[Rfam]
Rfam assigns this 71-nucleotide sequence from Accipiter nisus to the family "Small nucleolar RNA SNORD18".

RNA sequence: UGAGAAUGAUGAGAUUCCACUUCAUUGGUCCGUGUUUCUGAAACGCAUGAUUUUGUGGAAGUUCUGACUCA
Numbered sequence: 001u002g003a004g005a006a007u008g009a010u011g012a013g014a015u016u017c018c019a020c021u022u023c024a025u026u027g028g029u030c031c032g033u034g035u036u037u038c039u040g041a042a043a044c045g046c047a048u049g050a051u052u053u054u055g056u057g058g059a060a061g062u063u064c065u066g067a068c069u070c071a
Base pairs, nucleotide, nucleotide: 001071002070003069004068
The family's RNA type in Rfam is C/D-box small nucleolar RNA. For this family Rfam cites "Release of U18 snoRNA from its host intron requires interaction of Nop1p with the Rnt1p endonuclease" (Giorgi et al., EMBO J, 2001). The family's consensus secondary structure was predicted with PFOLD. Lineage of the source: Eukaryota > Craniata > Sauria > Coelurosauria > Accipiter.